[Rfam]
RNA: SAM (S-adenosyl methionine) riboswitch aptamer
RNA sequence: AAUCAUGAGCGCCAACACCAAGCCCUGGCUGGUUGGCCGGCAACCCUCUCGCCGUAGCGGGGUGCUCCAGGUGAUGAUUCGGCCCGCUGGCCACCUGGCCUGCGGAGCAAGUACCGCGC
Numbered sequence: 001a002a003u004c005a006u007g008a009g010c011g012c013c014a015a016c017a018c019c020a021a022g023c024c025c026u027g028g029c030u031g032g033u034u035g036g037c038c039g040g041c042a043a044c045c046c047u048c049u050c051g052c053c054g055u056a057g058c059g060g061g062g063u064g065c066u067c068c069a070g071g072u073g074a075u076g077a078u079u080c081g082g083c084c085c086g087c088u089g090g091c092c093a094c095c096u097g098g099c100c101u102g103c104g105g106a107g108c109a110a111g112u113a114c115c116g117c118g119c
Base pairs, nucleotide, nucleotide: 001079002078003077004076009038011037012036013035014034015033016032021030022029039066040065041064044062045061046060048057049056082108083107085104086103087102089100090099091098092097